[Rfam]
Nucleotides: 070
Base pairs, nucleotide, nucleotide: 001069002068003067004066
Number, partner (000 for none) and nucleotide at each position: 001069a002068u003067g004066c005000u006000g007000u008000g009000a010000c011000g012000a013000a014000a015000c016000a017000a018000a019000u020000u021000u022000c023000a024000a025000c026000a027000c028000a029000u030000c031000a032000u033000u034000c035000u036000u037000a038000c039000u040000g041000u042000g043000a044000a045000g046000u047000g048000a049000a050000g051000a052000a053000a054000c055000u056000a057000u058000a059000a060000u061000a062000c063000u064000g065000a066004g067003c068002a069001u070000a
Shown here is a 70-nucleotide sequence from Clarias magur, a member of the family "Small nucleolar RNA SNORD63".
From the family's description: snoRNA U63 is found in both humans and mice.
Lineage of the source: Eukaryota > Vertebrata > Gnathostomata > Siluroidei > Clarias.
A search with the family's covariance model found it, with a score of 49 bits.
For this family Rfam cites "Purified box C/D snoRNPs are able to reproduce site-specific 2'-O-methylation of target RNA in vitro" (Galardi et al., Mol Cell Biol, 2002).
Gene Ontology terms of the family: nucleolus and RNA processing.